[Rfam]
RNA sequence: GCAUGCCCGUGCAACGUGGCCUCUGCCCGAACCGACCCUGGCGUACUUCCCCAACGCCAGGUUCGUGCCUUCGGACAGGGACCUCGAUGCAGGGGCAGCUCGCC
Numbered sequence: 001g002c003a004u005g006c007c008c009g010u011g012c013a014a015c016g017u018g019g020c021c022u023c024u025g026c027c028c029g030a031a032c033c034g035a036c037c038c039u040g041g042c043g044u045a046c047u048u049c050c051c052c053a054a055c056g057c058c059a060g061g062u063u064c065g066u067g068c069c070u071u072c073g074g075a076c077a078g079g080g081a082c083c084u085c086g087a088u089g090c091a092g093g094g095g096c097a098g099c100u101c102g103c104c
Stems, first nucleotide, its partner, number of pairs: 010091004015086002018083002021080005027074005032067001033065003037061008
The family of this 104-nucleotide RNA sequence from Mycobacterium avium is "mraW RNA". The base pairs follow the family's consensus structure, which is taken from published work. By type it is a cis-regulatory element. The source organism's lineage runs through Bacteria, Bacillati, Mycobacteriales, Mycobacteriaceae and Mycobacterium avium subsp. paratuberculosis.